[Rfam]
RNA sequence: UGCCAAGGUAUCUUUACGUCGACCUCGCUGUUGUUCCUUGUGACUGUACCUUUGGUA
Numbered sequence: 001u002g003c004c005a006a007g008g009u010a011u012c013u014u015u016a017c018g019u020c021g022a023c024c025u026c027g028c029u030g031u032u033g034u035u036c037c038u039u040g041u042g043a044c045u046g047u048a049c050c051u052u053u054g055g056u057a
Stems, first nucleotide, its partner, number of pairs: 001057006007050005018044003027034002
RNA: Avian HBV RNA encapsidation signal epsilon